[Rfam]
RNA sequence: GCAGGUUCAGCUCGACCCCCCGGAGCUGAACUGCAGACGGCCCCCGCCCCUCCCCCCUGGCGGGGGCCGUCCCCU
Numbered sequence: 001g002c003a004g005g006u007u008c009a010g011c012u013c014g015a016c017c018c019c020c021c022g023g024a025g026c027u028g029a030a031c032u033g034c035a036g037a038c039g040g041c042c043c044c045c046g047c048c049c050c051u052c053c054c055c056c057c058u059g060g061c062g063g064g065g066g067c068c069g070u071c072c073c074c075u
Stems, first nucleotide, its partner, number of pairs: 004032010036071013
Rfam assigns this 75-nucleotide sequence from Saccharopolyspora elongata to the family "6C RNA". A reference for the family is Weinberg et al. (2007), "Identification of 22 candidate structured RNAs in bacteria using the CMfinder comparative genomics pipeline", Nucleic Acids Res. By type it is a cis-regulatory element. NCBI's taxonomy places the organism under Bacteria, Bacillati, Pseudonocardiales, Pseudonocardiaceae, Saccharopolyspora.